RNA sequence: GAGGUAAGAUGAAAAUAAAAUACCAUCUAAACUUUUCUGAAGACAAGUCAGUCCCCCUCAGAGAUACC
Numbered sequence: 001g002a003g004g005u006a007a008g009a010u011g012a013a014a015a016u017a018a019a020a021u022a023c024c025a026u027c028u029a030a031a032c033u034u035u036u037c038u039g040a041a042g043a044c045a046a047g048u049c050a051g052u053c054c055c056c057c058u059c060a061g062a063g064a065u066a067c068c
Stems, first nucleotide, its partner, number of pairs: 001059004